[Rfam]
Nucleotides: 078
Stems, first nucleotide, its partner, number of pairs: 002077003006071001008069002
Number, partner (000 for none) and nucleotide at each position: 001000c002077a003076g004075u005000u006071a007000a008069u009068g010000a011000u012000g013000a014000c015000a016000a017000c018000a019000g020000a021000a022000a023000g024000u025000c026000a027000a028000g029000a030000a031000c032000a033000g034000g035000a036000u037000g038000a039000u040000g041000a042000c043000a044000c045000a046000a047000a048000a049000a050000u051000g052000u053000u054000g055000c056000u057000c058000a059000a060000u061000a062000g063000g064000a065000u066000u067000a068009c069008g070000c071006u072000c073000a074000g075004g076003c077002u078000c
Notes: This 78-nucleotide RNA sequence from Rattus norvegicus belongs to the Rfam family "Small nucleolar RNA SNORD115". The literature on the family includes a 2000 paper in Proc Natl Acad Sci U S A by Cavaille et al., "Identification of brain-specific and imprinted small nucleolar RNA genes exhibiting an unusual genomic organization". Rfam links the family to the GO terms nucleolus and RNA processing. The match comes from Rfam's covariance-model search (54 bits). The base pairs follow the family's consensus structure, which was predicted with PFOLD. The organism belongs to Rattus, within Eukaryota.